[Rfam]
RNA: Purine riboswitch aptamer
Organism: Paenalicyclobacillus mengziensis
RNA sequence: CAAACGUAGGAUAUAAGCCCUCGUAUAAUGUCGGGAAUACGGCCCGACAGUCUCUACCGAGUGACCGGGAAUCACUCGACUACGAGGAUGUUGUCCAUACGG
Numbered sequence: 001c002a003a004a005c006g007u008a009g010g011a012u013a014u015a016a017g018c019c020c021u022c023g024u025a026u027a028a029u030g031u032c033g034g035g036a037a038u039a040c041g042g043c044c045c046g047a048c049a050g051u052c053u054c055u056a057c058c059g060a061g062u063g064a065c066c067g068g069g070a071a072u073c074a075c076u077c078g079a080c081u082a083c084g085a086g087g088a089u090g091u092u093g094u095c096c097a098u099a100c101g102g
Stems, first nucleotide, its partner, number of pairs: 019087007029049007058078007